Shown here is a 94-nucleotide RNA from Desulfosudis oleivorans, a member of the family "Selenocysteine transfer RNA". It is one of the family's seed sequences.
RNA sequence: GGAAGUGCGCAGCGUUCUGGUGAUGCUCCCGGACUUCAAAUCCGGUGUGGGGCGCUAACACCGUCCCGGGUGGGUUCGAUUCCCAUGCACUUCC
Numbered sequence: 001g002g003a004a005g006u007g008c009g010c011a012g013c014g015u016u017c018u019g020g021u022g023a024u025g026c027u028c029c030c031g032g033a034c035u036u037c038a039a040a041u042c043c044g045g046u047g048u049g050g051g052g053c054g055c056u057a058a059c060a061c062c063g064u065c066c067c068g069g070g071u072g073g074g075u076u077c078g079a080u081u082c083c084c085a086u087g088c089a090c091u092u093c094c
Stems, first nucleotide, its partner, number of pairs: 001094009011027005017022001029045005048068005071085004
NCBI's taxonomy places the organism under Bacteria, Pseudomonadati, Desulfobacterales, Desulfosudaceae, Desulfosudis oleivorans.